[Rfam]
Rfam assigns this 114-nucleotide sequence from Helianthus annuus to the family "MIR168 microRNA precursor family".
Rfam links the family to the GO terms RISC complex and miRNA-mediated post-transcriptional gene silencing.
The family has 10 seed sequences and 518 matches in Rfam 15.1.
Lineage of the source: Eukaryota > Spermatophyta > campanulids > Heliantheae > Helianthus.
Pairs were carried over by alignment from the consensus structure, which was predicted with WAR.
RNA sequence: GUUACUGCUGUUUCUGAUUCGCUUGGUGCAGGUCGGGAACGGUAUCGCGGACGUGAUCCGUGUAGAGAUAUCAGGUCCCGCCUUGCAUCAAGUGAAUCGGAAACCGCUGUGAAU
Numbered sequence: 001g002u003u004a005c006u007g008c009u010g011u012u013u014c015u016g017a018u019u020c021g022c023u024u025g026g027u028g029c030a031g032g033u034c035g036g037g038a039a040c041g042g043u044a045u046c047g048c049g050g051a052c053g054u055g056a057u058c059c060g061u062g063u064a065g066a067g068a069u070a071u072c073a074g075g076u077c078c079c080g081c082c083u084u085g086c087a088u089c090a091a092g093u094g095a096a097u098c099g100g101a102a103a104c105c106g107c108u109g110u111g112a113a114u
Stems, first nucleotide, its partner, number of pairs: 013101002017097004023091010034080005040074001